[Rfam]
RNA sequence: GGCGUAAAGCGUGCGCAGGCGGUUUUGUAAGACAGGCGUGAAAUCCCCGGGCUUAACCUGGGAACUGCGUUUGUGACUGCAAGACUAGAGUACGGCAGAGGGGGGUAGAAUUCCACGUGUAGCAGUGAAAUGCGUAGAUAUGUGGAGGAAUACCGAUGGCGAAGGCAGCCCCCUGGGUCGAUACUGACGCUCAUGCACGAAAGCGUGGGGAGCAAACAGGAUUAGAUACCCUGGUAGUCCACGCCCUAAACGAUGUCAACUAGGUGUUGGGGAAGGAGACUUCUUUAGUACCGCAGCUAACGCGAUAAGUUGACCGCCUGGGGAGUACGGUCGCAAGAUUAAAACUCAAAGGAAU
Numbered sequence: 001g002g003c004g005u006a007a008a009g010c011g012u013g014c015g016c017a018g019g020c021g022g023u024u025u026u027g028u029a030a031g032a033c034a035g036g037c038g039u040g041a042a043a044u045c046c047c048c049g050g051g052c053u054u055a056a057c058c059u060g061g062g063a064a065c066u067g068c069g070u071u072u073g074u075g076a077c078u079g080c081a082a083g084a085c086u087a088g089a090g091u092a093c094g095g096c097a098g099a100g101g102g103g104g105g106u107a108g109a110a111u112u113c114c115a116c117g118u119g120u121a122g123c124a125g126u127g128a129a130a131u132g133c134g135u136a137g138a139u140a141u142g143u144g145g146a147g148g149a150a151u152a153c154c155g156a157u158g159g160c161g162a163a164g165g166c167a168g169c170c171c172c173c174u175g176g177g178u179c180g181a182u183a184c185u186g187a188c189g190c191u192c193a194u195g196c197a198c199g200a201a202a203g204c205g206u207g208g209g210g211a212g213c214a215a216a217c218a219g220g221a222u223u224a225g226a227u228a229c230c231c232u233g234g235u236a237g238u239c240c241a242c243g244c245c246c247u248a249a250a251c252g253a254u255g256u257c258a259a260c261u262a263g264g265u266g267u268u269g270g271g272g273a274a275g276g277a278g279a280c281u282u283c284u285u286u287a288g289u290a291c292c293g294c295a296g297c298u299a300a301c302g303c304g305a306u307a308a309g310u311u312g313a314c315c316g317c318c319u320g321g322g323g324a325g326u327a328c329g330g331u332c333g334c335a336a337g338a339u340u341a342a343a344a345c346u347c348a349a350a351g352g353a354a355u
Stems, first nucleotide, its partner, number of pairs: 001318003009315001011198004018191003022085007030078002032074009046062006089185003093180004100174007107151001111147008122133003159166002203244006212238002217233004255314006263292012296303002320347003329340004
Notes: Rfam assigns this 355-nucleotide part of an RNA from Candidatus Gallionella acididurans to the family "Bacterial small subunit ribosomal RNA". The match comes from Rfam's covariance-model search (1564 bits).